[Rfam]
RNA sequence: UAAGCGGAAACCGAAAAGCUUUAAGAGUAGGCA
Numbered sequence: 001u002a003a004g005c006g007g008a009a010a011c012c013g014a015a016a017a018g019c020u021u022u023a024a025g026a027g028u029a030g031g032c033a
Stems, first nucleotide, its partner, number of pairs: 002021004011031002